The record is a 67-nucleotide RNA sequence from Bombyx mori, which matches "mir-2774 microRNA precursor family" in Rfam. For this family Rfam cites "MicroRNAs of Bombyx mori identified by Solexa sequencing" (Liu et al., BMC Genomics, 2010).
RNA sequence: ACAACCUUUGGACCGUUGAACUACCGAGAAAUUUCACCCGCUCGGUAGAAGAUCUUCCCUUUGACGU
Numbered sequence: 001a002c003a004a005c006c007u008u009u010g011g012a013c014c015g016u017u018g019a020a021c022u023a024c025c026g027a028g029a030a031a032u033u034u035c036a037c038c039c040g041c042u043c044g045g046u047a048g049a050a051g052a053u054c055u056u057c058c059c060u061u062u063g064a065c066g067u
Base pairs, nucleotide, nucleotide: 005063010058011057012056015053016052017051021048022047023046024045025044026043027042028041